[Rfam]
RNA sequence: CAUCUCUAUGAUGAUUGGUGUAUAAUUUAAAAGUAGUGGACUGAUUUCCAUUGAUGAUUUGAACCUUUCUGAGAGAUU
Numbered sequence: 001c002a003u004c005u006c007u008a009u010g011a012u013g014a015u016u017g018g019u020g021u022a023u024a025a026u027u028u029a030a031a032a033g034u035a036g037u038g039g040a041c042u043g044a045u046u047u048c049c050a051u052u053g054a055u056g057a058u059u060u061g062a063a064c065c066u067u068u069c070u071g072a073g074a075g076a077u078u
Stems, first nucleotide, its partner, number of pairs: 002077005
RNA: Small nucleolar RNA R21
Organism: Trema andersonii